Small nucleolar RNA SNORA28: a 125-nucleotide sequence from Myotis davidii.

RNA sequence: AAGCAACGCUCUGUGGCAGAUGAUCAAAACUGUCUGACAUAAUUUGAGCAUUCUAUAGCAACAAAGUCUAACCUAUUCCAGUGCUUUCCUCUGAAGAGAUAAGCCAUUUUAUAGACUUAGACAGU
Dot-bracket structure: ........(((((((.((((((........)))))).))))....)))...............(((((((...((.....((....((.(.....).))...)).....))))))))).......

Rfam's curators write: ACA28 is a member of the H/ACA class of snoRNA that guide the sites of modification of uridines to pseudouridines.
The source organism's lineage runs through Eukaryota, Bilateria, Sarcopterygii, Tetrapoda and Myotis.
Clan: SNORA28 clan.
It is annotated as an H/ACA-box small nucleolar RNA.
It scores 107 bits against the family's covariance model.
The base pairs follow the family's consensus structure, which was predicted with RNAfold.
A reference for the family is Huttenhofer et al. (2001), "RNomics: an experimental approach that identifies 201 candidates for novel, small, non-messenger RNAs in mouse", EMBO J.